Description
This 136-nucleotide sequence from Micromonospora deserti belongs to the Rfam family "c-di-AMP riboswitch aptamer (ydaO/yuaA leader)". From the family's description: This family represents a conserved RNA structure found upstream of the ydaO and yuaA genes in Bacillus subtilis and related genes in other bacteria. NCBI's taxonomy places the organism under Bacteria, Actinomycetota, Actinomycetes, Micromonosporales, Micromonospora.
RNA sequence: GGUCCGACACCGCCGAGUCGCUUCCGAGCGAGCCGGGGACCCAGUUUCCCCGGGGUGAAUCCGCAGCCCCUGCGGUAGGGCGUCCCCUUCCCGCCCGAACCCGUCAGCUAACCCGGUAGGCGGUCUGGAAGAAGGA
Numbered sequence: 001g002g003u004c005c006g007a008c009a010c011c012g013c014c015g016a017g018u019c020g021c022u023u024c025c026g027a028g029c030g031a032g033c034c035g036g037g038g039a040c041c042c043a044g045u046u047u048c049c050c051c052g053g054g055g056u057g058a059a060u061c062c063g064c065a066g067c068c069c070c071u072g073c074g075g076u077a078g079g080g081c082g083u084c085c086c087c088u089u090c091c092c093g094c095c096c097g098a099a100c101c102c103g104u105c106a107g108c109u110a111a112c113c114c115g116g117u118a119g120g121c122g123g124u125c126u127g128g129a130a131g132a133a134g135g136a
Stems, first nucleotide, its partner, number of pairs: 011122004018031003032117006042052001053102003061075004078096004